RNA sequence: UGGUGCCCCAACAACAUGGGUCCGAGAAGGGCAGAUCCAGUGAGAGACACUGAGAGGCCUGCUCAAAAACAGGAUGGAGAAAAUUCCGAGAAUAGAGGACAAGGCCACAUGGGAGCCUGCUGCGUUUUCUGAACCUCAGUAAGUGAACAGUGAUUAUGGGACAAGAAAUGAGCCAGCAUGAGAUUUUUGUUGAAAGUCUAGGAAAGGCUUUAAAGGUGUGAGGAGUAAAGGUUAAAAUUAAGCUAUUGUGUCAAUAUUUUGAUUUUAUAAAGGAAGUUUGUCCUU
Numbered sequence: 001u002g003g004u005g006c007c008c009c010a011a012c013a014a015c016a017u018g019g020g021u022c023c024g025a026g027a028a029g030g031g032c033a034g035a036u037c038c039a040g041u042g043a044g045a046g047a048c049a050c051u052g053a054g055a056g057g058c059c060u061g062c063u064c065a066a067a068a069a070c071a072g073g074a075u076g077g078a079g080a081a082a083a084u085u086c087c088g089a090g091a092a093u094a095g096a097g098g099a100c101a102a103g104g105c106c107a108c109a110u111g112g113g114a115g116c117c118u119g120c121u122g123c124g125u126u127u128u129c130u131g132a133a134c135c136u137c138a139g140u141a142a143g144u145g146a147a148c149a150g151u152g153a154u155u156a157u158g159g160g161a162c163a164a165g166a167a168a169u170g171a172g173c174c175a176g177c178a179u180g181a182g183a184u185u186u187u188u189g190u191u192g193a194a195a196g197u198c199u200a201g202g203a204a205a206g207g208c209u210u211u212a213a214a215g216g217u218g219u220g221a222g223g224a225g226u227a228a229a230g231g232u233u234a235a236a237a238u239u240a241a242g243c244u245a246u247u248g249u250g251u252c253a254a255u256a257u258u259u260u261g262a263u264u265u266u267a268u269a270a271a272g273g274a275a276g277u278u279u280g281u282c283c284u285u
Base pairs, nucleotide, nucleotide: 006031007030008029015026038061039060040059095137096136097135098134103130104128108124110122111121112120144163145162148160151158152157169212170211171210172208173207174206219261220260221259222258223257225255226254229247230246270285271284272283273282274281
A member of the RNA family "Mason-Pfizer monkey virus packaging signal" from Cavia porcellus, 285 nucleotides long.
It scores 83 bits against the family's covariance model.
A reference for the family is Harrison et al. (1995), "Secondary structure model of the Mason-Pfizer monkey virus 5' leader sequence: identification of a structural motif common to a variety of retroviruses", J Virol.
Rfam describes the family as follows. This family represents a group of sequences that are related to the Mason-Pfizer monkey virus (MPMV) packaging signal.